[Rfam]
RNA sequence: GCUAUUUUGGUGGAAUUGGUAGACACGAUACUCUUAAGAUGUAUUACUUUACAGUAUGAAGGUUCAAGUCCUUUAAAUAGCA
Numbered sequence: 001g002c003u004a005u006u007u008u009g010g011u012g013g014a015a016u017u018g019g020u021a022g023a024c025a026c027g028a029u030a031c032u033c034u035u036a037a038g039a040u041g042u043a044u045u046a047c048u049u050u051a052c053a054g055u056a057u058g059a060a061g062g063u064u065c066a067a068g069u070c071c072u073u074u075a076a077a078u079a080g081c082a
Stems, first nucleotide, its partner, number of pairs: 001081007010026003028044004058074005
A member of the RNA family "tRNA" from Saccharomyces cerevisiae, 82 nucleotides long.
Rfam links the family to the GO term triplet codon-amino acid adaptor activity.
By type it is a transfer RNA.
Taxonomically the source falls in Saccharomyces (Eukaryota, Opisthokonta, Dikarya, Saccharomycetes).